[Rfam]
RNA sequence: CUGCUACCUGGUUCAAGUAAUCCAGGAUAGGCUUUCUGUGUCUGCUUUGGCCUAUGCUUGAUUACUUGUACUUGGGGGCAG
Numbered sequence: 001c002u003g004c005u006a007c008c009u010g011g012u013u014c015a016a017g018u019a020a021u022c023c024a025g026g027a028u029a030g031g032c033u034u035u036c037u038g039u040g041u042c043u044g045c046u047u048u049g050g051c052c053u054a055u056g057c058u059u060g061a062u063u064a065c066u067u068g069u070a071c072u073u074g075g076g077g078g079c080a081g
Stems, first nucleotide, its partner, number of pairs: 002080004007075002010072003014068009024058002027055007
The record is an 81-nucleotide RNA sequence from Anabas testudineus, which matches "mir-26 microRNA precursor family" in Rfam. Rfam links the family to the GO terms miRNA-mediated post-transcriptional gene silencing and RISC complex. The organism belongs to Anabas, within Eukaryota. For this family Rfam cites "Identification of novel genes coding for small expressed RNAs" (Lagos-Quintana et al., Science, 2001). The base pairs follow the family's consensus structure, which was predicted with RNAalifold.